[Rfam]
RNA sequence: UCUUUCUUCUAUACCCAUUGCAUAUUGGAGUUGUGAAUCUUCAAAAUACCUCCUGUGUGCAUGGAUUACAGAAGAA
Numbered sequence: 001u002c003u004u005u006c007u008u009c010u011a012u013a014c015c016c017a018u019u020g021c022a023u024a025u026u027g028g029a030g031u032u033g034u035g036a037a038u039c040u041u042c043a044a045a046a047u048a049c050c051u052c053c054u055g056u057g058u059g060c061a062u063g064g065a066u067u068a069c070a071g072a073a074g075a076a
Stems, first nucleotide, its partner, number of pairs: 003074005015064004020060006027053004032048003